Rfam assigns this 77-nucleotide RNA sequence from Octodon degus to the family "mir-3473 microRNA precursor family".
RNA sequence: UCCACUGAGCCAUCUCUCUGGCCCCUUAAAUAUCUAUUUUAAAGAACUGUCUAGGGCCGGGGAGAUGGCUCAGUGGA
Numbered sequence: 001u002c003c004a005c006u007g008a009g010c011c012a013u014c015u016c017u018c019u020g021g022c023c024c025c026u027u028a029a030a031u032a033u034c035u036a037u038u039u040u041a042a043a044g045a046a047c048u049g050u051c052u053a054g055g056g057c058c059g060g061g062g063a064g065a066u067g068g069c070u071c072a073g074u075g076g077a
Stems, first nucleotide, its partner, number of pairs: 002076023

Rfam 15.1 lists 1,094 matches to the family in 20 species. The base pairs follow the family's consensus structure, which was predicted with RNAalifold.